[Rfam]
RNA sequence: AUAUUGAUACUCCCGUUCAGUCACAGUCCGAGCGUUAAAAGCGUCGCAGGCAAUGAGAGCGGCGGCAUGAGAACCAUGCCGGGGUGAAAUUCCCGUGA
Numbered sequence: 001a002u003a004u005u006g007a008u009a010c011u012c013c014c015g016u017u018c019a020g021u022c023a024c025a026g027u028c029c030g031a032g033c034g035u036u037a038a039a040a041g042c043g044u045c046g047c048a049g050g051c052a053a054u055g056a057g058a059g060c061g062g063c064g065g066c067a068u069g070a071g072a073a074c075c076a077u078g079c080c081g082g083g084g085u086g087a088a089a090u091u092c093c094c095g096u097g098a
Stems, first nucleotide, its partner, number of pairs: 012095001013062006063081003067077003082094003

A member of the RNA family "pemK RNA", 98 nucleotides long. Rfam classes the family as a cis-regulatory element.